[Rfam]
RNA sequence: CCUCAAAGAUGUUCGUUUAAGUACGGCACGUCCUGUGCCAACAACGAACGACCCCGCAUCCUGCAGG
Numbered sequence: 001c002c003u004c005a006a007a008g009a010u011g012u013u014c015g016u017u018u019a020a021g022u023a024c025g026g027c028a029c030g031u032c033c034u035g036u037g038c039c040a041a042c043a044a045c046g047a048a049c050g051a052c053c054c055c056g057c058a059u060c061c062u063g064c065a066g067g
Stems, first nucleotide, its partner, number of pairs: 011049007025039005053067002056064002
RNA: Bacillaceae-1 RNA
Organism: Pontibacillus halophilus